Nucleotides: 121
Base pairs, nucleotide, nucleotide: 060083061082062081063080065078067076068075086100087099089098090097091096
Number, partner (000 for none) and nucleotide at each position: 001000g002000c003000g004000u005000c006000c007000g008000c009000c010000c011000c012000c013000u014000g015000a016000u017000a018000c019000a020000c021000c022000c023000g024000c025000g026000c027000g028000c029000c030000g031000c032000c033000g034000g035000g036000g037000g038000c039000c040000g041000c042000c043000c044000g045000g046000u047000u048000a049000c050000g051000c052000u053000g054000g055000c056000c057000g058000c059000g060083u061082g062081c063080g064000c065078c066000c067076u068075c069000c070000u071000g072000c073000c074000g075068g076067a077000c078065g079000g080063c081062g082061c083060a084000a085000a086100g087099c088000c089098g090097a091096c092000a093000g094000c095000c096091g097090u098089c099087g100086c101000a102000c103000u104000c105000c106000a107000g108000g109000g110000a111000g112000c113000a114000c115000a116000u117000c118000c119000a120000u121000g